[Rfam]
Shown here is a 117-nucleotide RNA from Arthrobacter sp. Edens01, a member of the family "mraW RNA". The source organism's lineage runs through Bacteria, Bacillati, Actinomycetes, Micrococcaceae and Arthrobacter. By type it is a cis-regulatory element. The family's consensus secondary structure is taken from published work.
RNA sequence: GGCGGGAUCUUGAACGAGAUCUCCAGCCGCCCCGCGGAACUCACCUGGCUCACCUUCCCCGGAGCCAGGCGUACCCGUGAGGCGCGGAUGGGGAUCUGGUCCAAGAAACCGCUGAAC
Dot-bracket structure: .........(((.((..((.(((((.(((((.(((((.(....((((((((..........))))))))..).)).))).)..)))).))))).))..)).))).............